The family of this 96-nucleotide RNA sequence is "SAM-I/IV (S-adenosyl methionine) riboswitch aptamer". The base pairs follow the family's consensus structure, which is taken from published work. The sequence is in the family's curated seed alignment.
RNA sequence: AAAAAUCAUCAAGAGUGAGAUUAGGUUCUCCUCCAACCUGCCAACUCCGGCAAGGUGGAAAAAAGAUGAGGUUAAUCAACAAGUAUAGGAGUGUUA
Number, nucleotide and partner (000 for none) at each position: 001a000002a000003a000004a000005a000006u069007c068008a067009u066010c065011a000012a000013g000014a000015g031016u000017g030018a029019g028020a027021u000022u000023a000024g000025g000026u000027u020028c019029u018030c017031c015032u059033c058034c057035a000036a000037c055038c054039u053040g051041c050042c049043a000044a092045c091046u090047c089048c088049g042050g041051c040052a000053a039054g038055g037056u000057g034058g033059a032060a000061a000062a000063a000064a000065g010066a009067u008068g007069a006070g000071g080072u079073u078074a000075a000076u000077c000078a073079a072080c071081a000082a000083g000084u000085a000086u000087a000088g048089g047090a046091g045092u044093g000094u000095u000096a000